[Rfam]
A member of the RNA family "L2-Alphaproteobacteria ribosomal protein leader" from Jannaschia donghaensis, 67 nucleotides long. It is annotated as a cis-regulatory leader. A search with the family's covariance model found it, with a score of 58 bits. The literature on the family includes a 2020 paper in BMC Microbiol by Eckert and Weinberg, "Discovery of 20 novel ribosomal leader candidates in bacteria and archaea". Pairs were carried over by alignment from the consensus structure, which is taken from published work.
RNA sequence: GGGGACCUUCGGGGCCCUAUAUUCCGGGCGGCUCAGGCCGCUCGACAUGCAAAACGGAAGACAGGUA
Number, nucleotide and partner (000 for none) at each position: 001g018002g017003g016004g015005a000006c014007c013008u012009u000010c000011g000012g008013g007014g006015c004016c003017c002018u001019a000020u000021a000022u000023u000024c000025c000026g043027g042028g041029c040030g039031g038032c037033u000034c000035a000036g000037g032038c031039c030040g029041c028042u027043c026044g000045a000046c000047a000048u000049g000050c000051a000052a000053a000054a000055c000056g000057g000058a000059a000060g000061a000062c000063a000064g000065g000066u000067a000